[Rfam]
RNA: FMN riboswitch aptamer (RFN element)
RNA sequence: AAAAAUCUUCGGGGUCGGGUGAAAUUCCCAAUCGACGGUGAUGCGCGUUAGAGCGAUAAGUCCGUGAGCUUUUCGGAGCAGGAGCUGGUGAGAAUCCAGGACCGACAGUAUAGUCUGGAUGAGAGAAGAUGCAA
Numbered sequence: 001a002a003a004a005a006u007c008u009u010c011g012g013g014g015u016c017g018g019g020u021g022a023a024a025u026u027c028c029c030a031a032u033c034g035a036c037g038g039u040g041a042u043g044c045g046c047g048u049u050a051g052a053g054c055g056a057u058a059a060g061u062c063c064g065u066g067a068g069c070u071u072u073u074c075g076g077a078g079c080a081g082g083a084g085c086u087g088g089u090g091a092g093a094a095u096c097c098a099g100g101a102c103c104g105a106c107a108g109u110a111u112a113g114u115c116u117g118g119a120u121g122a123g124a125g126a127a128g129a130u131g132c133a134a
Stems, first nucleotide, its partner, number of pairs: 005130006017029003031114002033104002035065004060102002070078001085099004106117003